[Rfam]
The record is a 59-nucleotide RNA sequence from Drosera regia, which matches "Plastid-psbA-4 3UTR RNA" in Rfam.
The literature on the family includes a 2023 paper in Plant Commun by Richter et al., "Retrograde signaling in plants: A critical review focusing on the GUN pathway and beyond".
Its Rfam clan is "Plastid-psbA 3UTR RNA clan".
The organism belongs to Drosera, within Eukaryota.
RNA sequence: AAAGGGGGGGAGCAAUAACCAAUUUCUUGUUCUAUCAAGAGGUCCGGUAUUGCUCCCUU
Numbered sequence: 001a002a003a004g005g006g007g008g009g010g011a012g013c014a015a016u017a018a019c020c021a022a023u024u025u026c027u028u029g030u031u032c033u034a035u036c037a038a039g040a041g042g043u044c045c046g047g048u049a050u051u052g053c054u055c056c057c058u059u
Stems, first nucleotide, its partner, number of pairs: 006059012022043001024041006